RNA: Betaproteobacteria toxic small RNA
Organism: Cupriavidus basilensis
RNA sequence: UGUCUCCUCCAAUCCCACCAAGGAAUUGGAUUCGCGCCCGCCUCAUUGGCGGGCGUUUUUAU
Number, nucleotide and partner (000 for none) at each position: 001u000002g000003u000004c000005u000006c000007c000008u030009c029010c028011a027012a026013u025014c023015c000016c000017a000018c000019c000020a000021a000022g000023g014024a000025a013026u012027u011028g010029g009030a008031u000032u000033c000034g000035c055036g054037c053038c052039c051040g050041c049042c048043u000044c000045a000046u000047u000048g042049g041050c040051g039052g038053g037054c036055g035056u000057u000058u000059u000060u000061a000062u000